Rfam assigns this 73-nucleotide RNA sequence from Zymomonas mobilis to the family "tRNA". A search with the family's covariance model found it, with a score of 54 bits.

[Rfam]
RNA sequence: GCCGGGUUGGCCGAAUGGUUAGGCACCUACCUUGUAAGUAGCGACCAUGGGGGUUCGAGUCCCUCACCCGGCA
Numbered sequence: 001g002c003c004g005g006g007u008u009g010g011c012c013g014a015a016u017g018g019u020u021a022g023g024c025a026c027c028u029a030c031c032u033u034g035u036a037a038g039u040a041g042c043g044a045c046c047a048u049g050g051g052g053g054u055u056c057g058a059g060u061c062c063c064u065c066a067c068c069c070g071g072c073a
Base pairs, nucleotide, nucleotide: 001072002071003070004069005068006067007066010024011023012022027041028040029039030038049065050064051063052062053061